[Rfam]
RNA sequence: CAUGUCGGGGAUCGCCCUCCACCAGCGUGUUACGCCCGUGGGGGCAAUAGCG
Numbered sequence: 001c002a003u004g005u006c007g008g009g010g011a012u013c014g015c016c017c018u019c020c021a022c023c024a025g026c027g028u029g030u031u032a033c034g035c036c037c038g039u040g041g042g043g044g045c046a047a048u049a050g051c052g
Stems, first nucleotide, its partner, number of pairs: 016044007025035004